[Rfam]
RNA sequence: GUUCCUCACUCUCCCUCAAAGACUUCCAGUAAUGCUGGAGGACACUGCCCCAACAAUGCUGGAAGUCUUUGGAGAGAGUGAAAAAAAA
Numbered sequence: 001g002u003u004c005c006u007c008a009c010u011c012u013c014c015c016u017c018a019a020a021g022a023c024u025u026c027c028a029g030u031a032a033u034g035c036u037g038g039a040g041g042a043c044a045c046u047g048c049c050c051c052a053a054c055a056a057u058g059c060u061g062g063a064a065g066u067c068u069u070u071g072g073a074g075a076g077a078g079u080g081a082a083a084a085a086a087a088a
Base pairs, nucleotide, nucleotide: 006081007080008079009078010077011076012075013074015072017071018070019069020068021067022066023065024064025063026062027061028060
Dot-bracket structure: .....((((((((.(.((((((((((((...............................))))))))))))).)))))))).......